[Rfam]
RNA sequence: AUCUCCCGAUUCUGCCCCACGCUCUGUUCUCUUCCAUAGAGUAAUGGGUUCUGUACGUUGGAGAAGAUCGAGUACCGCUGGAAUGAUGCAAACCUCAUAAAUUAUCAUUCAACAGUGUCAUUUCCAGCGGGCACUUCCAUUUCCAUUGGUGUUUUUUGUCUACUACCUUCUUACUUGGUAGUUACUACAAAUGCCAGGGAAUACAUUU
Numbered sequence: 001a002u003c004u005c006c007c008g009a010u011u012c013u014g015c016c017c018c019a020c021g022c023u024c025u026g027u028u029c030u031c032u033u034c035c036a037u038a039g040a041g042u043a044a045u046g047g048g049u050u051c052u053g054u055a056c057g058u059u060g061g062a063g064a065a066g067a068u069c070g071a072g073u074a075c076c077g078c079u080g081g082a083a084u085g086a087u088g089c090a091a092a093c094c095u096c097a098u099a100a101a102u103u104a105u106c107a108u109u110c111a112a113c114a115g116u117g118u119c120a121u122u123u124c125c126a127g128c129g130g131g132c133a134c135u136u137c138c139a140u141u142u143c144c145a146u147u148g149g150u151g152u153u154u155u156u157u158g159u160c161u162a163c164u165a166c167c168u169u170c171u172u173a174c175u176u177g178g179u180a181g182u183u184a185c186u187a188c189a190a191a192u193g194c195c196a197g198g199g200a201a202u203a204c205a206u207u208u
Base pairs, nucleotide, nucleotide: 003063004062005061006060016048017047018046019045021042022041023040024039025038075130076129077128078127079126080125081124082122083121084120085119086118087117088116089115141201142200143199144198147196148195149194150193151192161187162186167181168180170178171177

Shown here is a 208-nucleotide sequence from Brettanomyces bruxellensis, a member of the family "Small nucleolar RNA snR43". Its Rfam clan is "SNORA9 clan". Gene Ontology terms of the family: RNA processing and nucleolus. On this family, see Balakin et al., Cell 1996: "The RNA world of the nucleolus: two major families of small RNAs defined by different box elements with related functions". A search with the family's covariance model found it, with a score of 64 bits. The family's RNA type in Rfam is H/ACA-box small nucleolar RNA.